[Rfam]
RNA sequence: ACCCUCUGAAAAUUACCAACAGCAUUAUUAGUUACUGUGGGUAAGAUAAGGGUGCCCACAUUAAAAGGUACACUAAAAGCUUAUUGCCCACUUUUGUAUUGCAUGUGGCCAAUAAAACCCGUGUGCCAAUACAU
Numbered sequence: 001a002c003c004c005u006c007u008g009a010a011a012a013u014u015a016c017c018a019a020c021a022g023c024a025u026u027a028u029u030a031g032u033u034a035c036u037g038u039g040g041g042u043a044a045g046a047u048a049a050g051g052g053u054g055c056c057c058a059c060a061u062u063a064a065a066a067g068g069u070a071c072a073c074u075a076a077a078a079g080c081u082u083a084u085u086g087c088c089c090a091c092u093u094u095u096g097u098a099u100u101g102c103a104u105g106u107g108g109c110c111a112a113u114a115a116a117a118c119c120c121g122u123g124u125g126c127c128a129a130u131a132c133a134u
Stems, first nucleotide, its partner, number of pairs: 006052002010047001013044004021036002024033001067127001069125005081115005089105002091101001
RNA: Small nucleolar RNA ACA64